The record is a 231-nucleotide RNA sequence from Cicer arietinum, which matches "MIR2630 microRNA precursor family" in Rfam. The organism belongs to Cicer, within Eukaryota.
[Rfam]
RNA sequence: CCUCGCAAACAAAUCAUUUUUUGUUUAUGGUUCUUGAUAUUUUAUUUUAGUCCCUGCAAAAUUUGUUCAUAUUGAAAUUGGUCCCCGUAAUUUCAUUUUCAGUCCUUAUUUUGAGGGUCUAAAACCAAUUAUUCUACAUAUUACAGGGACCAACUCUAAUAUAAAUAUAUUUUGCAGGGACUAAAACAAAAAACCAAGGACCAAAAGCAAAAAGUAAUAGAUUUGUAGGAA
Numbered sequence: 001c002c003u004c005g006c007a008a009a010c011a012a013a014u015c016a017u018u019u020u021u022u023g024u025u026u027a028u029g030g031u032u033c034u035u036g037a038u039a040u041u042u043u044a045u046u047u048u049a050g051u052c053c054c055u056g057c058a059a060a061a062u063u064u065g066u067u068c069a070u071a072u073u074g075a076a077a078u079u080g081g082u083c084c085c086c087g088u089a090a091u092u093u094c095a096u097u098u099u100c101a102g103u104c105c106u107u108a109u110u111u112u113g114a115g116g117g118u119c120u121a122a123a124a125c126c127a128a129u130u131a132u133u134c135u136a137c138a139u140a141u142u143a144c145a146g147g148g149a150c151c152a153a154c155u156c157u158a159a160u161a162u163a164a165a166u167a168u169a170u171u172u173u174g175c176a177g178g179g180a181c182u183a184a185a186a187c188a189a190a191a192a193a194c195c196a197a198g199g200a201c202c203a204a205a206a207g208c209a210a211a212a213a214g215u216a217a218u219a220g221a222u223u224u225g226u227a228g229g230a231a
Base pairs, nucleotide, nucleotide: 006225007224008223009222013218016215017214019212020211021210023208024207025206026205028203029202030201031200032199033198034197035196038193040191041190042189043188045186046185047184048183049182051180052179054177055176056175057174058173059172060171061170062169066165067164069162070161071160072159073158074157078153079152080151081150082149083148084147088143089142090141091140093138109124110123111122112121
Overview:
The family has 23 seed sequences and 296 matches in Rfam 15.1. The family's consensus secondary structure was predicted with RNAalifold.